A member of the RNA family "FMN riboswitch aptamer (RFN element)" from Acinetobacter marinus, 139 nucleotides long.

RNA sequence: UGCCAUCUUCAGGGCGAGGUGUAAUUCCUCACCGGUGGUAAAUUGCAAUUGCAAAAGCCCACGAGCGACAUGAUAUUCAUGAAGCAGAUUUGGUGUAAAUCCAAAGCCGACGGUAUAGUCCGGAUGAAAGAAGACCAUA
Numbered sequence: 001u002g003c004c005a006u007c008u009u010c011a012g013g014g015c016g017a018g019g020u021g022u023a024a025u026u027c028c029u030c031a032c033c034g035g036u037g038g039u040a041a042a043u044u045g046c047a048a049u050u051g052c053a054a055a056a057g058c059c060c061a062c063g064a065g066c067g068a069c070a071u072g073a074u075a076u077u078c079a080u081g082a083a084g085c086a087g088a089u090u091u092g093g094u095g096u097a098a099a100u101c102c103a104a105a106g107c108c109g110a111c112g113g114u115a116u117a118g119u120c121c122g123g124a125u126g127a128a129a130g131a132a133g134a135c136c137a138u139a
Base pairs, nucleotide, nucleotide: 006134007133008132009131010130017029018028019027031119032118033109034108035062036061037060038059057107058106065085066084089105090104091103092102093101111122112121113120

Overview: The RFN element is a highly conserved domain that is found frequently in the 5'-untranslated regions of prokaryotic mRNAs that encode for flavin mononucleotide (FMN) biosynthesis and transport proteins. This element is a metabolite-dependent riboswitch that directly binds FMN in the absence of proteins. In Bacillus subtilis, the riboswitch most likely controls gene expression by causing premature transcription termination within the 5' untranslated region of the ribDEAHT operon and precluding access to the ribosome-binding site of ypaA mRNA.The FMN riboswitch structure, reported in present an FMN-bound six-stem junction, adopts a butterfly-like scaffold, stapled together by opposingly directed but nearly identically folded peripheral domains. A search with the family's covariance model found it, with a score of 116 bits. Rfam links the family to the GO term FMN binding.